[Rfam]
RNA sequence: CAGGCAUGCUGGGGUCCCGCCAGCGGCGCCUGGCGGCAACUUGUGCAUAUGAGCGCCCCGACACCGGACGGGACAAGG
Dot-bracket structure: .............((((((....(((....(((...(.................)..)))...)))..))))))....
The family of this 78-nucleotide RNA from Brucella abortus is "ybhL leader".
A search with the family's covariance model found it, with a score of 59 bits.
This family is a putative regulatory RNA structure that is found upstream of an uncharacterized membrane protein in alpha-proteobacteria.
The family's RNA type in Rfam is cis-regulatory leader.
Gene Ontology term of the family: regulation of gene expression.
Pairs were carried over by alignment from the consensus structure.